Description
The family of this 78-nucleotide RNA sequence from Triticum aestivum is "Plastid-rpl20 3UTR RNA". The match comes from Rfam's covariance-model search (70 bits). The family has 270 seed sequences and 587 matches in Rfam 15.1. The base pairs follow the family's consensus structure, which was predicted with LocARNA.
RNA sequence: GAUGAAUUCCCGGAGAGGGAACUCCGGGAAUAUACAAUAAAUUAAGAUUAAGUGCUAGCAAUCAAAGUCAUUUAUAGU
Numbered sequence: 001g002a003u004g005a006a007u008u009c010c011c012g013g014a015g016a017g018g019g020a021a022c023u024c025c026g027g028g029a030a031u032a033u034a035c036a037a038u039a040a041a042u043u044a045a046g047a048u049u050a051a052g053u054g055c056u057a058g059c060a061a062u063c064a065a066a067g068u069c070a071u072u073u074a075u076a077g078u
Stems, first nucleotide, its partner, number of pairs: 007030009064073003
Plastid rpl20 is a non-coding RNA (ncRNA) recognised in plastids. It was found in the three prime untranslated region (3UTR) of rpl20 gene, it presence in the 3UTR region sugest a role in transcript maduration. The literature on the family includes a 2023 paper in Plant Commun by Richter et al., "Retrograde signaling in plants: A critical review focusing on the GUN pathway and beyond".